RNA sequence: UGGGGGGGCAUCUAUCGUGAGUGACACAUGUAGGGCAACUAGAUUGCUCUGCUCACGGAAAUCGACAUCAGGAGAUUUCAGAAGCAUAAUUUUUUUGGUACUUGGGCAGCUGGUGAUCAUUGGAAAGAAAAAAAAAAAAGAAUAAUAGGGGAGCUAGAGAGAUGACUUAAUGGUUAAAAGUACUGACUGCUCUUACAGAGUACCUGGGUUCGGUUCCUAGUACCCAC
Numbered sequence: 001u002g003g004g005g006g007g008g009c010a011u012c013u014a015u016c017g018u019g020a021g022u023g024a025c026a027c028a029u030g031u032a033g034g035g036c037a038a039c040u041a042g043a044u045u046g047c048u049c050u051g052c053u054c055a056c057g058g059a060a061a062u063c064g065a066c067a068u069c070a071g072g073a074g075a076u077u078u079c080a081g082a083a084g085c086a087u088a089a090u091u092u093u094u095u096u097g098g099u100a101c102u103u104g105g106g107c108a109g110c111u112g113g114u115g116a117u118c119a120u121u122g123g124a125a126a127g128a129a130a131a132a133a134a135a136a137a138a139a140g141a142a143u144a145a146u147a148g149g150g151g152a153g154c155u156a157g158a159g160a161g162a163u164g165a166c167u168u169a170a171u172g173g174u175u176a177a178a179a180g181u182a183c184u185g186a187c188u189g190c191u192c193u194u195a196c197a198g199a200g201u202a203c204c205u206g207g208g209u210u211c212g213g214u215u216c217c218u219a220g221u222a223c224c225c226a227c
Stems, first nucleotide, its partner, number of pairs: 008085002011082002013026001015024003030052009057079002060077004104225003109221005115216002118213001
Dot-bracket structure: .......((.(((.(((....))).)...(((((((((.....)))))))))....((.((((..........)))))).)).))..................(((..(((((.((.(..............................................................................................).))))))).)))..
Shown here is a 227-nucleotide sequence from Nannospalax galili, a member of the family "U11 spliceosomal RNA". A reference for the family is Schneider et al. (2004), "Identification of an evolutionarily divergent U11 small nuclear ribonucleoprotein particle in Drosophila", Proc Natl Acad Sci U S A. A search with the family's covariance model found it, with a score of 46 bits. NCBI's taxonomy places the organism under Eukaryota, Gnathostomata, Tetrapoda, Amniota, Nannospalax. The family's RNA type in Rfam is spliceosomal small nuclear RNA.